[Rfam]
The family of this 106-nucleotide sequence from Nyctereutes procyonoides is "mir-8834 microRNA precursor family". Lineage of the source: Eukaryota > Bilateria > Vertebrata > Sarcopterygii > Nyctereutes. It scores 53 bits against the family's covariance model. The base pairs follow the family's consensus structure, which was predicted with RNAalifold. Rfam 15.1 lists 13,926 matches to the family in 17 species. Gene Ontology terms of the family: RISC complex and miRNA-mediated post-transcriptional gene silencing.
RNA sequence: UGGAGGAAGAACCCCAGUGGCGGCCACUGGCUCUGGAGCCCUGGAUUCAGCUCCCGCAGGAACUACGGGCCUCUCCGUAUGCAGGGCCUGGAGGCUCCGGGGCGGG
Numbered sequence: 001u002g003g004a005g006g007a008a009g010a011a012c013c014c015c016a017g018u019g020g021c022g023g024c025c026a027c028u029g030g031c032u033c034u035g036g037a038g039c040c041c042u043g044g045a046u047u048c049a050g051c052u053c054c055c056g057c058a059g060g061a062a063c064u065a066c067g068g069g070c071c072u073c074u075c076c077g078u079a080u081g082c083a084g085g086g087c088c089u090g091g092a093g094g095c096u097c098c099g100g101g102g103c104g105g106g
Stems, first nucleotide, its partner, number of pairs: 002098004010089001012086003020078004029072002032069004037064001040060004